[Rfam]
RNA: MIR5269 microRNA precursor family
RNA sequence: UUGGUUUAAAUCAUUGUGGGUCUACACAUUGGAAAUAGAACCCACACAAAGUGGUGGGACAUACAUUUUUUUCAUUCAA
Numbered sequence: 001u002u003g004g005u006u007u008a009a010a011u012c013a014u015u016g017u018g019g020g021u022c023u024a025c026a027c028a029u030u031g032g033a034a035a036u037a038g039a040a041c042c043c044a045c046a047c048a049a050a051g052u053g054g055u056g057g058g059a060c061a062u063a064c065a066u067u068u069u070u071u072u073c074a075u076u077c078a079a
Base pairs, nucleotide, nucleotide: 001079002078003077004076006074008072009071010070013067015065016064017063018062022057023056024055025053026052027051029049030048031047